A member of the RNA family "mir-9/mir-79 microRNA precursor family" from Callorhinchus milii, 77 nucleotides long. Gene Ontology terms of the family: RISC complex and miRNA-mediated post-transcriptional gene silencing.

RNA sequence: CCGUUCUUACAUUCGGUUGUCUAGCUUUAUGAAGGUAUAACACACUCAUACAGCUAGAAAACCAAAGAGAAAAACUG
Numbered sequence: 001c002c003g004u005u006c007u008u009a010c011a012u013u014c015g016g017u018u019g020u021c022u023a024g025c026u027u028u029a030u031g032a033a034g035g036u037a038u039a040a041c042a043c044a045c046u047c048a049u050a051c052a053g054c055u056a057g058a059a060a061a062c063c064a065a066a067g068a069g070a071a072a073a074a075c076u077g
Stems, first nucleotide, its partner, number of pairs: 001077001003075003007071002012066002015063004020058007028050005
The literature on the family includes a 2002 paper in Curr Biol by Lagos-Quintana et al., "Identification of tissue-specific microRNAs from mouse".